[Rfam]
RNA: TD-1 RNA
Organism: Treponema denticola
RNA sequence: GUUUAUCUGACGAGUUUUGUGCUUUGCACAAAACAUCGCAUUAUUAUAUGUGUGUGCUUUUCGGCACACACUUGAAAAAACUUUUUUCGCAAAUUGAUAUUUGCUGCAAAAAGUUUUUAUAGGA
Numbered sequence: 001g002u003u004u005a006u007c008u009g010a011c012g013a014g015u016u017u018u019g020u021g022c023u024u025u026g027c028a029c030a031a032a033a034c035a036u037c038g039c040a041u042u043a044u045u046a047u048a049u050g051u052g053u054g055u056g057c058u059u060u061u062c063g064g065c066a067c068a069c070a071c072u073u074g075a076a077a078a079a080a081c082u083u084u085u086u087u088c089g090c091a092a093a094u095u096g097a098u099a100u101u102u103g104c105u106g107c108a109a110a111a112a113g114u115u116u117u118u119a120u121a122g123g124a
Stems, first nucleotide, its partner, number of pairs: 012037002014034008050071009076118011089104006